[Rfam]
RNA sequence: UAAAUGGGGCCACGACGCGAACGCCCCGUGAGGCUUUGGCCAAAGGUUCGCAUCCCCUGACCCUCAGAUAAGGAUGCAAAAUG
Numbered sequence: 001u002a003a004a005u006g007g008g009g010c011c012a013c014g015a016c017g018c019g020a021a022c023g024c025c026c027c028g029u030g031a032g033g034c035u036u037u038g039g040c041c042a043a044a045g046g047u048u049c050g051c052a053u054c055c056c057c058u059g060a061c062c063c064u065c066a067g068a069u070a071a072g073g074a075u076g077c078a079a080a081a082u083g
Base pairs, nucleotide, nucleotide: 005028006027007026008025009024010023050077051076052075053074054073055072

Background: Rfam assigns this 83-nucleotide RNA sequence to the family "chrB-a RNA". The family's RNA type in Rfam is cis-regulatory element. Rfam's curators put it in the seed alignment. The family has 163 seed sequences and 347 matches in Rfam 15.1.